[Rfam]
The family of this 81-nucleotide RNA from Dielma fastidiosa is "Glycine riboswitch aptamer". It scores 62 bits against the family's covariance model. Taxonomically the source falls in Dielma (Bacteria, Erysipelotrichia, Erysipelotrichales, Erysipelotrichaceae).
RNA sequence: AUGAAGGAUAUGGGAGAGACCGUAGGGCGCCGAAGGGGCAGUUGCAAAUAAACUCUCAGGCAAAAGGACCAUAUCCAGACG
Dot-bracket structure: .....((((((((......((....)).(((((..(((...((...))....))))).))).......)))))))).....